[Rfam]
Nucleotides: 072
Stems, first nucleotide, its partner, number of pairs: 003070001005068005010062005016056005022050006
Number, partner (000 for none) and nucleotide at each position: 001000g002000u003070u004000c005068a006067c007066a008065u009064c010062u011061u012060a013059c014058c015000g016056g017055g018054c019053a020052g021000c022050a023049u024048u025047a026046g027045a028000u029000u030000c031000c032000c033000a034000a035000u036000u037000u038000g039000a040000a041000a042000u043000c044000u045027u046026c047025u048024a049023a050022u051000a052020c053019u054018g055017u056016c057000a058014g059013g060012u061011a062010a063000a064009g065008a066007u067006g068005u069000c070003g071000u072000c
This 72-nucleotide RNA sequence from Hermetia illucens belongs to the Rfam family "mir-8/mir-141/mir-200 microRNA precursor family". Rfam 15.1 lists 2,669 matches to the family in 883 species. The family is grouped with related families in Rfam's "mir-8 microRNA precursor clan". It scores 70 bits against the family's covariance model.